Description
The record is a 78-nucleotide RNA from Schistosoma curassoni, which matches "mir-3492 microRNA precursor family" in Rfam. NCBI's taxonomy places the organism under Eukaryota, Opisthokonta, Eumetazoa, Platyhelminthes, Schistosoma. Pairs were carried over by alignment from the consensus structure, which was predicted with RNAalifold.
[Rfam]
Nucleotides: 078
Stems, first nucleotide, its partner, number of pairs: 002077005008071001011068003016064002021060002024058007
Number, partner (000 for none) and nucleotide at each position: 001000a002077g003076c004075u005074u006073u007000g008071c009000a010000a011068a012067u013066c014000u015000g016064u017063g018000a019000c020000a021060a022059g023000a024058u025057u026056u027055u028054g029053u030052c031000a032000g033000a034000c035000c036000g037000u038000a039000g040000a041000c042000c043000u044000u045000u046000a047000g048000g049000g050000c051000u052030g053029a054028u055027g056026a057025g058024a059022c060021u061000c062000c063017c064016a065000a066013g067012a068011u069000a070000a071008g072000u073006g074005a075004a076003g077002u078000g